Histone 3' UTR stem-loop: a 46-nucleotide sequence from Lingula anatina. Rfam classes the family as a cis-regulatory element. Lineage of the source: Eukaryota > Metazoa > Lingulata > Linguloidea > Lingula. A search with the family's covariance model found it, with a score of 35 bits.
RNA sequence: GAAAAGGCCUUUUUCAAGGCCACCAUAUCAUUUCAGAAAAGCUAUA
Numbered sequence: 001g002a003a004a005a006g007g008c009c010u011u012u013u014u015c016a017a018g019g020c021c022a023c024c025a026u027a028u029c030a031u032u033u034c035a036g037a038a039a040a041g042c043u044a045u046a
Base pairs, nucleotide, nucleotide: 006021007020008019009018010017011016